RNA sequence: UUGCUCUAGGGGUUAUUCUUGUUCCCUACAUUUAAGUCCAUCUCUUACUUUGUCAGCUGGCCUUAGUUUAUUACCAGUUGAUUUUCAAGGUUGGUACAUUA
Numbered sequence: 001u002u003g004c005u006c007u008a009g010g011g012g013u014u015a016u017u018c019u020u021g022u023u024c025c026c027u028a029c030a031u032u033u034a035a036g037u038c039c040a041u042c043u044c045u046u047a048c049u050u051u052g053u054c055a056g057c058u059g060g061c062c063u064u065a066g067u068u069u070a071u072u073a074c075c076a077g078u079u080g081a082u083u084u085u086c087a088a089g090g091u092u093g094g095u096a097c098a099u100u101a
Stems, first nucleotide, its partner, number of pairs: 038094003042090001052082008

Rfam assigns this 101-nucleotide RNA sequence from Arachis hypogaea to the family "Small nucleolar RNA snoR99". Gene Ontology terms of the family: nucleolus and RNA processing. It is annotated as an H/ACA-box small nucleolar RNA.